Rfam assigns this 106-nucleotide RNA sequence from Madurella mycetomatis to the family "Small nucleolar RNA Z13/snr52". Its family is annotated with RNA processing and nucleolus in the Gene Ontology. It is annotated as a C/D-box small nucleolar RNA.
RNA sequence: UCGGCCUAGCAUGAUGAAAUAUUUCGGAUGUAAAACUUUACUUUCUGAAAUGCGCAAACAAAACAAUGUUGAGAUUUCCGUUGCCUUCCUUCUGAUCAUACUGCCU
Numbered sequence: 001u002c003g004g005c006c007u008a009g010c011a012u013g014a015u016g017a018a019a020u021a022u023u024u025c026g027g028a029u030g031u032a033a034a035a036c037u038u039u040a041c042u043u044u045c046u047g048a049a050a051u052g053c054g055c056a057a058a059c060a061a062a063a064c065a066a067u068g069u070u071g072a073g074a075u076u077u078c079c080g081u082u083g084c085c086u087u088c089c090u091u092c093u094g095a096u097c098a099u100a101c102u103g104c105c106u
Stems, first nucleotide, its partner, number of pairs: 003105003025080004